[Rfam]
RNA: ZMP/ZTP riboswitch aptamer (pfl RNA motif)
Organism: Streptomyces sp. yr375
RNA sequence: CCGUAGGGCCGUGACUGGCGCGCUGGGAUGGGACGGACCAUCGGGGAGCGGCCCGGGAGCAGUACGAGUGCCGUGCGCCUGGGCCGAACCG
Numbered sequence: 001c002c003g004u005a006g007g008g009c010c011g012u013g014a015c016u017g018g019c020g021c022g023c024u025g026g027g028a029u030g031g032g033a034c035g036g037a038c039c040a041u042c043g044g045g046g047a048g049c050g051g052c053c054c055g056g057g058a059g060c061a062g063u064a065c066g067a068g069u070g071c072c073g074u075g076c077g078c079c080u081g082g083g084c085c086g087a088a089c090c091g
Base pairs, nucleotide, nucleotide: 004056006054007053008052009051010050011049012048015045016044017079018078019077020076021075028041029040030039031038070084071083072082